[Rfam]
RNA sequence: UGUGAAUAAGGCGAUGGAGUUCGCCAUAACCGCCCUUCUGGGCUAAUGACUCCUACCAGUGA
Numbered sequence: 001u002g003u004g005a006a007u008a009a010g011g012c013g014a015u016g017g018a019g020u021u022c023g024c025c026a027u028a029a030c031c032g033c034c035c036u037u038c039u040g041g042g043c044u045a046a047u048g049a050c051u052c053c054u055a056c057c058a059g060u061g062a
Stems, first nucleotide, its partner, number of pairs: 010025004016053006032043004
Rfam assigns this 62-nucleotide RNA from Paenibacillus protaetiae to the family "Fluoride riboswitch aptamer (crcB RNA motif)". Taxonomically the source falls in Paenibacillus (Bacteria, Bacillati, Bacilli, Paenibacillaceae).